Overview:
Shown here is a 173-nucleotide RNA, a member of the family "Epstein-Barr virus EBER2".
RNA sequence: AGGACAGCCGUUGCCCUAGUGGUUUCGGACACACCGCCAACGCGCUGUGCGGUGCUGCCGUCCCGAGGUCAAGUCCCGGGGGAGGAGAAGAGCGGCUUCCCGCCUAGAGCAUUUGCAAGUCAGGAUUCUCUAAUCCCUCUGGGAGAAGGGUAUUCGGCUUGUCCGCUGUUUUU
Numbered sequence: 001a002g003g004a005c006a007g008c009c010g011u012u013g014c015c016c017u018a019g020u021g022g023u024u025u026c027g028g029a030c031a032c033a034c035c036g037c038c039a040a041c042g043c044g045c046u047g048u049g050c051g052g053u054g055c056u057g058c059c060g061u062c063c064c065g066a067g068g069u070c071a072a073g074u075c076c077c078g079g080g081g082g083a084g085g086a087g088a089a090g091a092g093c094g095g096c097u098u099c100c101c102g103c104c105u106a107g108a109g110c111a112u113u114u115g116c117a118a119g120u121c122a123g124g125a126u127u128c129u130c131u132a133a134u135c136c137c138u139c140u141g142g143g144a145g146a147a148g149g150g151u152a153u154u155c156g157g158c159u160u161g162u163c164c165g166c167u168g169u170u171u172u173u
Base pairs, nucleotide, nucleotide: 002164003163004162005161006160007158008157009156010155012152013151014150015149016148017147021064022063026060027059028058032054033053034052035051036050037049074144075143076142077141078140079139080137081136082135083134084131085130086129087128088127089126094104095103096102

Highly structured, non-coding RNA highly abundant in EBV-infected cells during latency. Contributes to oncogenesis by promoting growth of tumor cells and by inducing apoptosis resistance. Known interactions include paired PAX5 and cellular protein La.